[Rfam]
RNA sequence: AGUCAUAUGCUUGUCUCAAAGAUUAAGCCAUGCAUGUCUAAGUAUAAACAACUAUACAGUGAAACUGCGAAUGGCUCAUUAAAUCAGUUAUAGUUUAUUUGAUGAUACCUUACUACAUGGAUAACUGUGGUAAUUCUAGAGCUAAUACAUGCUGAAAAGCCCCGACCUUUGGAAGGGGUGUAUUUAUUAGAUAAAAAACCAAUGGCCUUCGGGUCUCCUUGGUGACUCAUAAUAACUUCUCGAAUCGCAUGGCCUUGUGCCGGUGAUGCUUCAUUCAAAUAUCUGCCCUAUCAACUUUCGAUGGUAGGAUAGAGGCCUACCAUGGUGAUGACGGGUAACGGGGAAUAAGGGUUCGAUUCCGGAGAGAGGGCCUGAGAAACGGCCCUCAAAUCUAAGGAUUGCAGCAGGCGCGCAAAUUACCCAAUCCCGACACGGGGAGGUAGUGACAAUAAAUAACAAUGUAUGGCUCUUUUGGGUCUUACAAUUGGAAUGAGUACAAUUUAAAUCUCUUAACGAGGAUCAAUUGGAGGGCAAGUCUGGUGCCAGCAGCCGCGGUAAUUCCAGCUCCAAUAGCGUAUAUUAAAGUUGUUG
Numbered sequence: 001a002g003u004c005a006u007a008u009g010c011u012u013g014u015c016u017c018a019a020a021g022a023u024u025a026a027g028c029c030a031u032g033c034a035u036g037u038c039u040a041a042g043u044a045u046a047a048a049c050a051a052c053u054a055u056a057c058a059g060u061g062a063a064a065c066u067g068c069g070a071a072u073g074g075c076u077c078a079u080u081a082a083a084u085c086a087g088u089u090a091u092a093g094u095u096u097a098u099u100u101g102a103u104g105a106u107a108c109c110u111u112a113c114u115a116c117a118u119g120g121a122u123a124a125c126u127g128u129g130g131u132a133a134u135u136c137u138a139g140a141g142c143u144a145a146u147a148c149a150u151g152c153u154g155a156a157a158a159g160c161c162c163c164g165a166c167c168u169u170u171g172g173a174a175g176g177g178g179u180g181u182a183u184u185u186a187u188u189a190g191a192u193a194a195a196a197a198a199c200c201a202a203u204g205g206c207c208u209u210c211g212g213g214u215c216u217c218c219u220u221g222g223u224g225a226c227u228c229a230u231a232a233u234a235a236c237u238u239c240u241c242g243a244a245u246c247g248c249a250u251g252g253c254c255u256u257g258u259g260c261c262g263g264u265g266a267u268g269c270u271u272c273a274u275u276c277a278a279a280u281a282u283c284u285g286c287c288c289u290a291u292c293a294a295c296u297u298u299c300g301a302u303g304g305u306a307g308g309a310u311a312g313a314g315g316c317c318u319a320c321c322a323u324g325g326u327g328a329u330g331a332c333g334g335g336u337a338a339c340g341g342g343g344a345a346u347a348a349g350g351g352u353u354c355g356a357u358u359c360c361g362g363a364g365a366g367a368g369g370g371c372c373u374g375a376g377a378a379a380c381g382g383c384c385c386u387c388a389a390a391u392c393u394a395a396g397g398a399u400u401g402c403a404g405c406a407g408g409c410g411c412g413c414a415a416a417u418u419a420c421c422c423a424a425u426c427c428c429g430a431c432a433c434g435g436g437g438a439g440g441u442a443g444u445g446a447c448a449a450u451a452a453a454u455a456a457c458a459a460u461g462u463a464u465g466g467c468u469c470u471u472u473u474g475g476g477u478c479u480u481a482c483a484a485u486u487g488g489a490a491u492g493a494g495u496a497c498a499a500u501u502u503a504a505a506u507c508u509c510u511u512a513a514c515g516a517g518g519a520u521c522a523a524u525u526g527g528a529g530g531g532c533a534a535g536u537c538u539g540g541u542g543c544c545a546g547c548a549g550c551c552g553c554g555g556u557a558a559u560u561c562c563a564g565c566u567c568c569a570a571u572a573g574c575g576u577a578u579a580u581u582a583a584a585g586u587u588g589u590u591g
Stems, first nucleotide, its partner, number of pairs: 001581003005578007014451001016449001020444001021411001027409003031406003036068002041066003048060002075364003085285003090280002094278002100273003116151004125141002128138003159179005166172002184235006198223004205214003245266004250262004287335003294326003301323008339361004343354004366387006389400004417442001419441003425437005457487003460483004465478005494514002496511001498510001524570006537564004546553002